[Rfam]
RNA sequence: GCCCCGGGUGGGAUAUCAUCAUAUACUGUAAGUCGGCUAUGAGACACUACAGUAUAGAUGAUGUACUCCCCGGCGUGG
Numbered sequence: 001g002c003c004c005c006g007g008g009u010g011g012g013a014u015a016u017c018a019u020c021a022u023a024u025a026c027u028g029u030a031a032g033u034c035g036g037c038u039a040u041g042a043g044a045c046a047c048u049a050c051a052g053u054a055u056a057g058a059u060g061a062u063g064u065a066c067u068c069c070c071c072g073g074c075g076u077g078g
Base pairs, nucleotide, nucleotide: 007070008069010067011066013064014063015062016061017060018059019058020057022056023055024054025053026052027051028050029049030048032045033044034043